Notes:
Shown here is an 88-nucleotide sequence from Alkaliphilus peptidifermentans, a member of the family "c-di-GMP-I riboswitch aptamer". Its family is annotated with cyclic-di-GMP binding in the Gene Ontology. The organism belongs to Alkaliphilus peptidifermentans, within Bacteria.
[Rfam]
RNA sequence: UAAAGAUACUGGCAAACUUUUCGAAAGAAAAGGACGCAAAACUAUGGGUCUAAGGGAUAUAUUUUCCUAUGAUUGCCAAGUUACCUAA
Numbered sequence: 001u002a003a004a005g006a007u008a009c010u011g012g013c014a015a016a017c018u019u020u021u022c023g024a025a026a027g028a029a030a031a032g033g034a035c036g037c038a039a040a041a042c043u044a045u046g047g048g049u050c051u052a053a054g055g056g057a058u059a060u061a062u063u064u065u066c067c068u069a070u071g072a073u074u075g076c077c078a079a080g081u082u083a084c085c086u087a088a
Base pairs, nucleotide, nucleotide: 012037013036017032018031019030020029021028022027040082041081042080043079045078046077047076048073049072050071055067056066057065